[Rfam]
Shown here is a 153-nucleotide RNA from Neogale vison, a member of the family "U4 spliceosomal RNA". U4 small nuclear RNA (U4 snRNA) is a component of the major U2-dependent spliceosome. Taxonomically the source falls in Neogale (Eukaryota, Bilateria, Carnivora, Caniformia). Pairs were carried over by alignment from the consensus structure, which is taken from published work.
RNA sequence: AGCUUUGCGCAGUGGCAGUAUCGUAGCCAAUGAGGUUUAUCCGAGGCGCGAUUAUUGCUAAUUAAAAGUUGGAUAUUCUAUUAUAGAAUUUCAUGUUAAAAUAGUAAUGUAUAGCCCUUCCAAAUCCCUUCAAGUUUUCCCUGAGAAAGGGAA
Numbered sequence: 001a002g003c004u005u006u007g008c009g010c011a012g013u014g015g016c017a018g019u020a021u022c023g024u025a026g027c028c029a030a031u032g033a034g035g036u037u038u039a040u041c042c043g044a045g046g047c048g049c050g051a052u053u054a055u056u057g058c059u060a061a062u063u064a065a066a067a068g069u070u071g072g073a074u075a076u077u078c079u080a081u082u083a084u085a086g087a088a089u090u091u092c093a094u095g096u097u098a099a100a101a102u103a104g105u106a107a108u109g110u111a112u113a114g115c116c117c118u119u120c121c122a123a124a125u126c127c128c129u130u131c132a133a134g135u136u137u138u139c140c141c142u143g144a145g146a147a148a149g150g151g152a153a
Base pairs, nucleotide, nucleotide: 020052021051022050023049024048026047027046028045034042035041078104079103080102081101082100084098085097086096088094089093118153119152120151121150